[Rfam]
Background: This 356-nucleotide part of an RNA from Methanothrix soehngenii belongs to the Rfam family "Archaeal large subunit ribosomal RNA".
Nucleotides: 356
Base pairs, nucleotide, nucleotide: 016034017033018032019031020030021029035353036352037351038350043332044331045330046329049312050311054078055077056076057075058074059073063071064070085308086307087306089123090122094117096115097114098113099112101109102108127144128143129142130141131140147304148303149302150301151300152299153298154297162294163293167283168282169281170280171279173277174276175275178271179270180269181268182267183202184201185200186199187198188197207253208252209251215245216244217243218242225235226234227233260265318327319326335347336346337345
Number, partner (000 for none) and nucleotide at each position: 001000a002000g003000c004000a005000g006000u007000a008000g009000c010000a011000g012000c013000a014000a015000a016034a017033u018032c019031g020030g021029g022000u023000g024000a025000g026000a027000a028000u029021c030020c031019c032018g033017a034016u035353c036352g037351c038350c039000g040000u041000a042000a043332g044331g045330g046329c047000c048000a049312g050311g051000g052000u053000u054078c055077c056076u057075c058074g059073g060000c061000a062000a063071u064070g065000u066000u067000c068000g069000u070064c071063a072000g073059c074058c075057g076056a077055g078054g079000g080000u081000c082000a083000g084000u085308c086307g087306g088000u089123c090122c091000u092000a093000a094117g095000a096115c097114g098113u099112a100000c101109c102108u103000u104000a105000a106000u107000c108102g109101g110000a111000g112099u113098a114097c115096g116000c117094c118000a119000a120000a121000u122090g123089g124000g125000a126000a127144a128143c129142a130141g131140g132000u133000u134000a135000a136000u137000a138000u139000u140131c141130c142129u143128g144127u145000a146000c147304c148303u149302u150301u151300c152299a153298a154297c155000a156000u157000u158000a159000a160000a161000a162294c163293u164000g165000a166000c167283g168282c169281u170280u171279c172000c173277g174276g175275a176000u177000a178271u179270g180269u181268c182267a183202a184201g185200c186199g187198u188197c189000c190000u191000u192000g193000c194000c195000u196000g197188g198187g199186c200185g201184u202183u203000c204000a205000a206000u207253c208252g209251u210000a211000u212000a213000a214000u215245c216244c217243u218242g219000u220000g221000g222000a223000g224000a225235g226234c227233c228000g229000u230000a231000a232000u233227g234226g235225c236000g237000a238000g239000a240000a241000c242218c243217a244216g245215g246000a247000g248000a249000a250000a251209g252208c253207g254000u255000g256000a257000u258000g259000a260265c261000g262000u263000a264000a265260g266000u267182u268181g269180g270179c271178a272000a273000a274000u275175u276174c277173c278000a279171g280170g281169a282168g283167u284000c285000c286000g287000u288000g289000a290000a291000a292000a293163g294162g295000g296000a297154g298153u299152u300151g301150a302149a303148a304147g305000u306087c307086c308085g309000u310000a311050c312049c313000g314000a315000g316000a317000u318327c319326c320000a321000a322000c323000a324000c325000u326319g327318g328000u329046g330045c331044c332043c333000c334000a335347a336346g337345c338000u339000g340000a341000g342000a343000a344000g345337g346336c347335u348000a349000a350038g351037g352036c353035g354000u355000u356000u